The record is a 61-nucleotide RNA sequence from Triticum turgidum, which matches "Plastid-psbN 5UTR RNA" in Rfam. Rfam 15.1 lists 2,345 matches to the family in 397 species. Plastid psbN is a non-coding RNA (ncRNA) recognised in plastids. It was reported as a conserved 11 stem-loop in the prime untranslated region (5UTR) of psbN genes. The family's RNA type in Rfam is cis-regulatory element. The source organism's lineage runs through Eukaryota, Euphyllophyta, Magnoliopsida, Mesangiospermae and Triticum turgidum.
[Rfam]
RNA sequence: UACGACCCCCAUAAAAGGAGUAGUCCCCCAACCCGGGGCGACUUUCCCAUACCCUAAUUUU
Numbered sequence: 001u002a003c004g005a006c007c008c009c010c011a012u013a014a015a016a017g018g019a020g021u022a023g024u025c026c027c028c029c030a031a032c033c034c035g036g037g038g039c040g041a042c043u044u045u046c047c048c049a050u051a052c053c054c055u056a057a058u059u060u061u
Base pairs, nucleotide, nucleotide: 017045018044019043020042021041023039024038025037026036027035